[Rfam]
RNA sequence: AUCCUAUGAGGAAGAAAUCCCCAAUAAAGAUAGGAAGUGCCGUAUGACACAUUAAACAGCAGCGGAUCC
Numbered sequence: 001a002u003c004c005u006a007u008g009a010g011g012a013a014g015a016a017a018u019c020c021c022c023a024a025u026a027a028a029g030a031u032a033g034g035a036a037g038u039g040c041c042g043u044a045u046g047a048c049a050c051a052u053u054a055a056a057c058a059g060c061a062g063c064g065g066a067u068c069c
Stems, first nucleotide, its partner, number of pairs: 014063001034053002037050003
The record is a 69-nucleotide RNA from Helianthus annuus, which matches "Small nucleolar RNA U49" in Rfam. The family is grouped with related families in Rfam's "SNORD49 clan". Rfam classes the family as a C/D-box small nucleolar RNA. On this family, see Brown et al., RNA 2001: "Multiple snoRNA gene clusters from Arabidopsis". Lineage of the source: Eukaryota > Streptophyta > Tracheophyta > Mesangiospermae > Helianthus. Pairs were carried over by alignment from the consensus structure, which was predicted with CMfinder.